The record is a 99-nucleotide RNA sequence from Massilia horti, which matches "TPP riboswitch aptamer (THI element)" in Rfam.

[Rfam]
RNA sequence: CGCGCUCGCUAGGGGUCCUGGGACUUUUGUUCCGGGUGAGAGAUACCCUCCGUACCUGAUCUGGAUAAUGCCAGCGAAGGAAAGCGCAAAAGAAAAACA
Number, nucleotide and partner (000 for none) at each position: 001c000002g000003c000004g000005c000006u000007c086008g085009c084010u083011a049012g048013g047014g046015g000016u043017c036018c035019u034020g033021g032022g031023a030024c000025u000026u000027u000028u000029g000030u023031u022032c021033c020034g019035g018036g017037u000038g000039a000040g000041a000042g000043a016044u000045a000046c014047c013048c012049u011050c000051c000052g000053u000054a000055c080056c079057u078058g000059a000060u000061c074062u073063g072064g071065a000066u000067a000068a000069u000070g000071c064072c063073a062074g061075c000076g000077a000078a057079g056080g055081a000082a000083a010084g009085c008086g007087c000088a000089a000090a000091a000092g000093a000094a000095a000096a000097a000098c000099a000